Nucleotides: 128
Stems, first nucleotide, its partner, number of pairs: 002060006014048007022041001024040001027038002073121005080114004088108004093104004
Number, partner (000 for none) and nucleotide at each position: 001000a002060g003059g004058u005057c006056a007055u008000u009000u010000c011000a012000a013000a014048g015047a016046g017045g018044g019043c020042u021000g022041c023000u024040u025000g026000u027038g028037g029000g030000a031000c032000c033000a034000a035000a036000a037028c038027u039000a040024g041022g042020a043019g044018u045017u046016c047015u048014u049000a050000a051000c052000u053000c054000u055007g056006u057005g058004a059003c060002c061000a062000a063000a064000g065000a066000u067000u068000c069000a070000a071000u072000u073121u074120c075119u076118c077117c078000a079000u080114a081113g082112g083111a084000u085000a086000u087000a088108a089107c090106a091105g092000u093104c094103a095102c096101u097000c098000a099000a100000u101096a102095g103094u104093g105091c106090u107089g108088u109000u110000u111083u112082c113081c114080u115000a116000a117077g118076g119075a120074g121073a122000u123000a124000u125000a126000a127000g128000a
This 128-nucleotide RNA from Diceros bicornis belongs to the Rfam family "Small nucleolar RNA SNORA25". It is annotated as an H/ACA-box small nucleolar RNA. It scores 115 bits against the family's covariance model.